[Rfam]
RNA sequence: ACUUGUGGCACCUUAGAGACUAACCAAUUUUUAUGCUCAAAUAAAUUGGUUAGUCUCUAAGGUGCCACAAGU
Number, nucleotide and partner (000 for none) at each position: 001a000002c071003u070004u069005g068006u067007g066008g065009c064010a063011c062012c061013u060014u059015a058016g057017a056018g055019a054020c053021u000022a000023a050024c049025c048026a047027a046028u045029u044030u000031u000032u000033a000034u000035g000036c000037u000038c000039a000040a000041a000042u000043a000044a029045a028046u027047u026048g025049g024050u023051u000052a000053g020054u019055c018056u017057c016058u015059a014060a013061g012062g011063u010064g009065c008066c007067a006068c005069a004070a003071g002072u000
A member of the RNA family "mir-153 microRNA precursor family" from Chelonia mydas, 72 nucleotides long. Pairs were carried over by alignment from the consensus structure, which was predicted with RNAalifold.